[Rfam]
RNA sequence: CUUUGCUCAGAGCAAACUCUCCGAAAGGAGAGGGCGCAGAGCAACGGGGCUAAAGAAGAGACGCUCCUCUUCCAUGCCCGCCGAGCCGCCAAG
Numbered sequence: 001c002u003u004u005g006c007u008c009a010g011a012g013c014a015a016a017c018u019c020u021c022c023g024a025a026a027g028g029a030g031a032g033g034g035c036g037c038a039g040a041g042c043a044a045c046g047g048g049g050c051u052a053a054a055g056a057a058g059a060g061a062c063g064c065u066c067c068u069c070u071u072c073c074a075u076g077c078c079c080g081c082c083g084a085g086c087c088g089c090c091a092a093g
Stems, first nucleotide, its partner, number of pairs: 012037002017032006041086002045083003048078003055072006